Shown here is a 103-nucleotide RNA sequence from Azorhizobium oxalatiphilum, a member of the family "Glycine riboswitch aptamer". About the family: This family represents the bacterial glycine riboswitch. A search with the family's covariance model found it, with a score of 58 bits.
[Rfam]
RNA sequence: AUGAUCCCUGCGGGAGAGACCGGCAAACCGCGAAAGCGGGGAACCGGCGCCGAAGGCGCAACCGCCCCGGAACCGCUCAGGCAACAAGGGCCGCAGGGUGACG
Number, nucleotide and partner (000 for none) at each position: 001a000002u000003g000004a000005u000006c098007c097008c096009u095010g094011c093012g092013g091014g000015a000016g000017a000018g000019a000020c047021c046022g045023g044024c000025a000026a000027a000028c000029c000030g000031c000032g000033a000034a000035a000036g000037c000038g000039g000040g000041g000042a000043a000044c023045c022046g021047g020048c000049g082050c081051c080052g078053a077054a000055g000056g076057c075058g074059c000060a000061a000062c070063c069064g000065c000066c000067c000068c000069g063070g062071a000072a000073c000074c058075g057076c056077u053078c052079a000080g051081g050082c049083a000084a000085c000086a000087a000088g000089g000090g000091c013092c012093g011094c010095a009096g008097g007098g006099u000100g000101a000102c000103g000